[Rfam]
RNA sequence: UUGCCGUCGUUAAAUGCUAGUCCGCGUUCCGGCGCGGGCGAGACCUUCAAACUGCGGGGACCGCCUAAAACUCCAGCUACUAAGCCAUCGCUCGAAAGACGGUGGUGGCCAGGUUAAUUGCCUCGGGUACAGUCACAACGCUGGAGAUGUUACAAUGGCCAAUCCGCAUCCAAGCCCCUACGGCGCUCCGCCACGGGGAAGGUUCAGAGACUAGAUGGAGGUCGGUCCCGGGGCGCGGCCCCGGGGCUUAAGAUAUAGUCCGUCCCCCGUCGAGAGGCGGGG
Dot-bracket structure: ....(((......))).........................(((((.((...((((((....(((...........................................................................................)))...)))))).(....(((.................)))....)....[.[[[[[..)).))))).(((((((((.....)))))))))........]]]]]].....(((((....)))))..